[Rfam]
RNA: int-alpA RNA
Nucleotides: 067
Stems, first nucleotide, its partner, number of pairs: 001054008011022004028044004035067005
Number, partner (000 for none) and nucleotide at each position: 001054g002053c003052c004051a005050c006049c007048c008047c009000u010000a011022g012021c013020c014019c015000g016000a017000c018000g019014g020013g021012g022011c023000a024000a025000a026000a027000a028044g029043c030042g031041g032000a033000a034000a035067c036066c037065u038064u039063c040000a041031c042030c043029g044028c045000c046000u047008g048007g049006g050005g051004u052003g053002g054001c055000g056000u057000c058000u059000u060000a061000a062000u063039g064038a065037a066036g067035g